Rfam assigns this 94-nucleotide RNA sequence from Sedimentibacter saalensis to the family "Selenocysteine transfer RNA". The organism belongs to Sedimentibacter, within Bacteria. The family is grouped with related families in Rfam's "tRNA clan". It scores 63 bits against the family's covariance model.
RNA sequence: GGGGAUAGAUAGGUGCUGGUGUGCCUCCUGGUCUUCAAAAUCAGUCGCGGGGCGUUAGUAGCGUCCUGGGUGGGUUCAAUUCCCACAUAUUCCC
Numbered sequence: 001g002g003g004g005a006u007a008g009a010u011a012g013g014u015g016c017u018g019g020u021g022u023g024c025c026u027c028c029u030g031g032u033c034u035u036c037a038a039a040a041u042c043a044g045u046c047g048c049g050g051g052g053c054g055u056u057a058g059u060a061g062c063g064u065c066c067u068g069g070g071u072g073g074g075u076u077c078a079a080u081u082c083c084c085a086c087a088u089a090u091u092c093c094c
Base pairs, nucleotide, nucleotide: 001094002093003092004091005090006089007088008086011026012025013024014023015022016021028044029043030042031041032040048068049067050066051065052064071085072084073083074082